[Rfam]
RNA sequence: AAAAAGGGUGUUUGCCACUUGCAUGGCAUGCGGACCCCAAUUGGGGCUUCGUAGGGUAUGGCCAUCAAGACAUACUCAGCACAUAAUUUUUUUCUUAGCGGGGCUGCUGGCUGUAAAUAAGCACCGGCGCCUCC
Numbered sequence: 001a002a003a004a005a006g007g008g009u010g011u012u013u014g015c016c017a018c019u020u021g022c023a024u025g026g027c028a029u030g031c032g033g034a035c036c037c038c039a040a041u042u043g044g045g046g047c048u049u050c051g052u053a054g055g056g057u058a059u060g061g062c063c064a065u066c067a068a069g070a071c072a073u074a075c076u077c078a079g080c081a082c083a084u085a086a087u088u089u090u091u092u093u094c095u096u097a098g099c100g101g102g103g104c105u106g107c108u109g110g111c112u113g114u115a116a117a118u119a120a121g122c123a124c125c126g127g128c129g130c131c132u133c134c
Stems, first nucleotide, its partner, number of pairs: 008082005013028005029053006036046003054077007101132004106128005112123003
Dot-bracket structure: .......((((((((((......)))))((((((.(((.....))).))))))(((((((..........))))))))))))..................((((.(((((.(((......))))))))))))..
RNA: U11 spliceosomal RNA
Organism: Cimex lectularius